[Rfam]
RNA sequence: UGGACAUAUUAUUGUAUUUGACUGUAUUCACGGCGUGAAAUAAGAGAUUACACUGUUUUUAAAACUGAAUCAAUUAACAUAAUAGACUCCU
Numbered sequence: 001u002g003g004a005c006a007u008a009u010u011a012u013u014g015u016a017u018u019u020g021a022c023u024g025u026a027u028u029c030a031c032g033g034c035g036u037g038a039a040a041u042a043a044g045a046g047a048u049u050a051c052a053c054u055g056u057u058u059u060u061a062a063a064a065c066u067g068a069a070u071c072a073a074u075u076a077a078c079a080u081a082a083u084a085g086a087c088u089c090c091u
Base pairs, nucleotide, nucleotide: 002090003089004088009085010084011083012082013081014080015079017077018076020075021074023072024071026070027069028068029067030066036064037059038058039057040056041055042054